About this RNA: Rfam assigns this 62-nucleotide RNA from Tetragenococcus muriaticus to the family "Fluoride riboswitch aptamer (crcB RNA motif)". Pairs were carried over by alignment from the consensus structure, which is taken from published work. For this family Rfam cites "Widespread genetic switches and toxicity resistance proteins for fluoride" (Baker et al., Science, 2012).

[Rfam]
Nucleotides: 062
Stems, first nucleotide, its partner, number of pairs: 010025004016053006032043004
Number, partner (000 for none) and nucleotide at each position: 001000a002000u003000c004000u005000a006000a007000a008000a009000a010025a011024g012023g013022g014000a015000u016053g017052g018051u019050a020049c021048u022013c023012c024011c025010u026000a027000u028000a029000a030000u031000u032043a033042c034041c035040a036000g037000a038000a039000g040035u041034g042033g043032u044000u045000a046000a047000u048021g049020g050019u051018g052017c053016c054000u055000a056000u057000u058000a059000u060000a061000a062000g